[Rfam]
RNA sequence: AAGGCGGAACCGAAAAGCCUCAACAGAGUAGGAG
Numbered sequence: 001a002a003g004g005c006g007g008a009a010c011c012g013a014a015a016a017g018c019c020u021c022a023a024c025a026g027a028g029u030a031g032g033a034g
Stems, first nucleotide, its partner, number of pairs: 002020004010032002
A member of the RNA family "DUF805b RNA", 34 nucleotides long. The family's RNA type in Rfam is cis-regulatory element.